A member of the RNA family "Small nucleolar RNA SNORD72" from Megalops atlanticus, 78 nucleotides long.
The match comes from Rfam's covariance-model search (76 bits).
From the family's description: snoRNA HBII-240 belongs to the CD family of snoRNAs. It is the human orthologue of the mouse MBII-240 and is predicted to guide 2'O-ribose methylation of the large 28S rRNA at residue U4590.
The pairing is the family consensus, mapped onto this sequence.
RNA sequence: GUCUUGUCAAUGAUGUUGUAAAUACAAAUGUCUGAACAUAUGAGUUCCAGUGAUUCCAGAUUGAAACUGAGACAAGAU
Numbered sequence: 001g002u003c004u005u006g007u008c009a010a011u012g013a014u015g016u017u018g019u020a021a022a023u024a025c026a027a028a029u030g031u032c033u034g035a036a037c038a039u040a041u042g043a044g045u046u047c048c049a050g051u052g053a054u055u056c057c058a059g060a061u062u063g064a065a066a067c068u069g070a071g072a073c074a075a076g077a078u
Stems, first nucleotide, its partner, number of pairs: 002077007
Dot-bracket structure: .(((((((..............................................................))))))).
The family's RNA type in Rfam is C/D-box small nucleolar RNA.